[Rfam]
RNA sequence: GUGGUGUGGACGCUCCUGCCUAGGGGCAAACACGAAGGGGUGCUCACAAAGAAAAACGCCAUUGGGGAAGGUUCGAGACGGAGGCCACACGCAACCCCAGCUGGGUUGUCCCGGUAAACAGGAGGGGGGUAUCAGAAAACAGUUGUCAUGGAACAGGUUGGAAGAAGACCCACCCCGAUCCCGGGGUCUGGGAGCGCGCAGUUCCCACCAGGUCGGUUUUAGAGUUGAAAGACCCCCUGGCCAGCCACUGGAGUCCAAUGAAGUGAGGGUGACUUCCUCUGGAAGGAGAGGCAAAACCCAAUUCCAGACCUAUCCUCAGACCAC
Numbered sequence: 001g002u003g004g005u006g007u008g009g010a011c012g013c014u015c016c017u018g019c020c021u022a023g024g025g026g027c028a029a030a031c032a033c034g035a036a037g038g039g040g041u042g043c044u045c046a047c048a049a050a051g052a053a054a055a056a057c058g059c060c061a062u063u064g065g066g067g068a069a070g071g072u073u074c075g076a077g078a079c080g081g082a083g084g085c086c087a088c089a090c091g092c093a094a095c096c097c098c099a100g101c102u103g104g105g106u107u108g109u110c111c112c113g114g115u116a117a118a119c120a121g122g123a124g125g126g127g128g129g130u131a132u133c134a135g136a137a138a139a140c141a142g143u144u145g146u147c148a149u150g151g152a153a154c155a156g157g158u159u160g161g162a163a164g165a166a167g168a169c170c171c172a173c174c175c176c177g178a179u180c181c182c183g184g185g186g187u188c189u190g191g192g193a194g195c196g197c198g199c200a201g202u203u204c205c206c207a208c209c210a211g212g213u214c215g216g217u218u219u220u221a222g223a224g225u226u227g228a229a230a231g232a233c234c235c236c237c238u239g240g241c242c243a244g245c246c247a248c249u250g251g252a253g254u255c256c257a258a259u260g261a262a263g264u265g266a267g268g269g270u271g272a273c274u275u276c277c278u279c280u281g282g283a284a285g286g287a288g289a290g291g292c293a294a295a296a297c298c299c300a301a302u303u304c305c306a307g308a309c310c311u312a313u314c315c316u317c318a319g320a321c322c323a324c
Stems, first nucleotide, its partner, number of pairs: 001324004009317002013268002016265001017262001019260001023063002026060001073308002075304003083242004093107005109123003113119001124238007144224001270293002273290003
This 324-nucleotide RNA sequence from Geodia barretti belongs to the Rfam family "Nuclear RNase P". It is annotated as a ribozyme. The match comes from Rfam's covariance-model search (68 bits). The source organism's lineage runs through Eukaryota, Metazoa, Demospongiae, Geodiidae and Geodia. Ribonuclease P (RNase P) is a ubiquitous endoribonuclease, found in archaea, bacteria and eukarya as well as chloroplasts and mitochondria. Its best characterised activity is the generation of mature 5'-ends of tRNAs by cleaving the 5'-leader elements of precursor-tRNAs. Cellular RNase Ps are ribonucleoproteins. RNA from bacterial RNase Ps retains its catalytic activity in the absence of the protein subunit, i.e. it is a ribozyme.